mir-205 microRNA precursor family: a 72-nucleotide RNA sequence from Tinamus guttatus. For this family Rfam cites "Vertebrate microRNA genes" (Lim et al., Science, 2003).
RNA sequence: UUCUGACGCCCUUCAUUCCACCGGAAUCUGUGCACAGGAACCAGAUUUCAGUGAAAUGAAGCCCAUCAGAGA
Numbered sequence: 001u002u003c004u005g006a007c008g009c010c011c012u013u014c015a016u017u018c019c020a021c022c023g024g025a026a027u028c029u030g031u032g033c034a035c036a037g038g039a040a041c042c043a044g045a046u047u048u049c050a051g052u053g054a055a056a057u058g059a060a061g062c063c064c065a066u067c068a069g070a071g072a
Stems, first nucleotide, its partner, number of pairs: 011061006019053003023049004028044003
The match comes from Rfam's covariance-model search (72 bits). Gene Ontology terms of the family: RISC complex and miRNA-mediated post-transcriptional gene silencing.